[Rfam]
The record is a 142-nucleotide RNA from Eubacterium sp. CAG:202, which matches "Ribosomal protein L10 leader" in Rfam. The source organism's lineage runs through Bacteria, Bacillati, Clostridia, Eubacteriaceae and Eubacterium. The base pairs follow the family's consensus structure, which was predicted with CMfinder. It is annotated as a cis-regulatory leader.

RNA sequence: GAAUAUAAAUUCGCUGUUCUAAAGACAGCAGGUGCAAUAUGCAUAAAGGUUAUACCGCCUGCCGAGGAAGAUGCAAUUUUACAUUAUUUUUGUAUUUUUGCGGCAGUCCGAGGUCUAAUCGGACUGCCUUGUUUUUUAAGAA
Numbered sequence: 001g002a003a004u005a006u007a008a009a010u011u012c013g014c015u016g017u018u019c020u021a022a023a024g025a026c027a028g029c030a031g032g033u034g035c036a037a038u039a040u041g042c043a044u045a046a047a048g049g050u051u052a053u054a055c056c057g058c059c060u061g062c063c064g065a066g067g068a069a070g071a072u073g074c075a076a077u078u079u080u081a082c083a084u085u086a087u088u089u090u091u092g093u094a095u096u097u098u099u100g101c102g103g104c105a106g107u108c109c110g111a112g113g114u115c116u117a118a119u120c121g122g123a124c125u126g127c128c129u130u131g132u133u134u135u136u137u138a139a140g141a142a
Base pairs, nucleotide, nucleotide: 028062029061030060031059032058033057034042035041036040102128103127104126105125106124107123108122109121110120111119